A member of the RNA family "SAM-I/IV (S-adenosyl methionine) riboswitch aptamer" from Aestuariirhabdus litorea, 103 nucleotides long. Its Rfam clan is "SAM clan". NCBI's taxonomy places the organism under Bacteria, Pseudomonadati, Gammaproteobacteria, Aestuariirhabdaceae, Aestuariirhabdus. It scores 63 bits against the family's covariance model.
RNA sequence: UUCAUGCAUCAAGAGAAGGACUGACGUCCUCUCCAACCUGCCCCUAGGCAAGGUGGAUUCCGGUAACGGAGAUGUGGCCCCCGCGGCAACCAUCUAGGAUUUC
Numbered sequence: 001u002u003c004a005u006g007c008a009u010c011a012a013g014a015g016a017a018g019g020a021c022u023g024a025c026g027u028c029c030u031c032u033c034c035a036a037c038c039u040g041c042c043c044c045u046a047g048g049c050a051a052g053g054u055g056g057a058u059u060c061c062g063g064u065a066a067c068g069g070a071g072a073u074g075u076g077g078c079c080c081c082c083g084c085g086g087c088a089a090c091c092a093u094c095u096a097g098g099a100u101u102u103c
Stems, first nucleotide, its partner, number of pairs: 006075005015031001017030005032057003037053003040049003045098001077087003

Gene Ontology terms of the family: regulation of gene expression and S-adenosylmethionine metabolic process.